Description: A member of the RNA family "Small nucleolar RNA Z247" from Panicum virgatum, 139 nucleotides long.
[Rfam]
RNA sequence: UCUCUGGAUGAUGAAGAACUGGCGGCGUACAUCUGCAAUGGUCUUGAUGCUGACUACAACCCGGUAGUGACGUCGAUCACCGUCAGGACUGAUCCCAUCUCGAUCCCUGAGCUAUAUGCCCAAUUGCUCAGUUUCGAGA
Numbered sequence: 001u002c003u004c005u006g007g008a009u010g011a012u013g014a015a016g017a018a019c020u021g022g023c024g025g026c027g028u029a030c031a032u033c034u035g036c037a038a039u040g041g042u043c044u045u046g047a048u049g050c051u052g053a054c055u056a057c058a059a060c061c062c063g064g065u066a067g068u069g070a071c072g073u074c075g076a077u078c079a080c081c082g083u084c085a086g087g088a089c090u091g092a093u094c095c096c097a098u099c100u101c102g103a104u105c106c107c108u109g110a111g112c113u114a115u116a117u118g119c120c121c122a123a124u125u126g127c128u129c130a131g132u133u134u135c136g137a138g139a
Base pairs, nucleotide, nucleotide: 004138005137007135008134088108091105092104093103
Dot-bracket structure: ...((.((...............................................................................(..(((.........)))..).........................)).)).

Notes
Taxonomically the source falls in Panicum sect. Hiantes (Eukaryota, Tracheophyta, Mesangiospermae, Liliopsida).